[Rfam]
RNA sequence: UUAUACAGACCGGUUUGCCCUCAUAUAUGUCCGAUAAUAAGGUUCGGAUGUUUCUACCAAGUCGCCGGAAAUGACUUGACUAUGAAGGCGAAUGCACCCAUG
Numbered sequence: 001u002u003a004u005a006c007a008g009a010c011c012g013g014u015u016u017g018c019c020c021u022c023a024u025a026u027a028u029g030u031c032c033g034a035u036a037a038u039a040a041g042g043u044u045c046g047g048a049u050g051u052u053u054c055u056a057c058c059a060a061g062u063c064g065c066c067g068g069a070a071a072u073g074a075c076u077u078g079a080c081u082a083u084g085a086a087g088g089c090g091a092a093u094g095c096a097c098c099c100a101u102g
Base pairs, nucleotide, nucleotide: 018088019087021085022084023083024082025081029049030048031047032046033045034044058078059077060076061075062074063073064072
RNA: Purine riboswitch aptamer
Organism: Paenisporosarcina sp. HGH0030